small nucleolar RNA snoR114: an 85-nucleotide RNA sequence from Capsella rubella. Pairs were carried over by alignment from the consensus structure, which was predicted with RNAalifold. Rfam links the family to the GO terms nucleolus and RNA processing. The organism belongs to Capsella, within Eukaryota. The literature on the family includes a 2009 paper in Nucleic Acids Res by Chen and Wu, "Mining small RNA sequencing data: a new approach to identify small nucleolar RNAs in Arabidopsis".
RNA sequence: GAUCUGUGAGGAAAAUGGCUCUAGCGGUUGUUGGGUCCUUCGCAUUCUUCUGACUUAUCAGAUGACAUAGCCUUAGUCUGAGAUC
Dot-bracket structure: ((((.............................................................................))))
Numbered sequence: 001g002a003u004c005u006g007u008g009a010g011g012a013a014a015a016u017g018g019c020u021c022u023a024g025c026g027g028u029u030g031u032u033g034g035g036u037c038c039u040u041c042g043c044a045u046u047c048u049u050c051u052g053a054c055u056u057a058u059c060a061g062a063u064g065a066c067a068u069a070g071c072c073u074u075a076g077u078c079u080g081a082g083a084u085c
Stems, first nucleotide, its partner, number of pairs: 001085004